This 61-nucleotide RNA from Apilactobacillus ozensis belongs to the Rfam family "L17 ribosomal protein downstream element".

RNA sequence: AAAGCGUUAUGAUGAUGGAUUUAUUCCAAGUCUAGCUUGAAUGGAGAUUUUAUCUUCGUAC
Numbered sequence: 001a002a003a004g005c006g007u008u009a010u011g012a013u014g015a016u017g018g019a020u021u022u023a024u025u026c027c028a029a030g031u032c033u034a035g036c037u038u039g040a041a042u043g044g045a046g047a048u049u050u051u052a053u054c055u056u057c058g059u060a061c
Stems, first nucleotide, its partner, number of pairs: 002038004011032003017027003039061001041059007
Dot-bracket structure: .((((.....(((...(((.....)))..)))..))))(.(((((((.....))))))).)